[Rfam]
RNA sequence: AGAGAUCCAAUAGGUGUGACUUGAGAACACAUGACAUGCUUAAUAACAAGUGAUUGUUUCAUGUGUUCUCAGGUCGCCCCUGUAGGAUUUUC
Number, nucleotide and partner (000 for none) at each position: 001a000002g000003a000004g000005a000006u000007c086008c085009a000010a000011u082012a081013g080014g079015u000016g077017u076018g075019a074020c000021u000022u000023g070024a069025g068026a067027a066028c065029a064030c063031a062032u061033g000034a000035c000036a000037u000038g000039c000040u000041u000042a000043a000044u000045a000046a000047c000048a000049a000050g000051u000052g000053a000054u000055u000056g000057u000058u000059u000060c000061a032062u031063g030064u029065g028066u027067u026068c025069u024070c023071a000072g000073g000074u019075c018076g017077c016078c000079c014080c013081u012082g011083u000084a000085g008086g007087a000088u000089u000090u000091u000092c000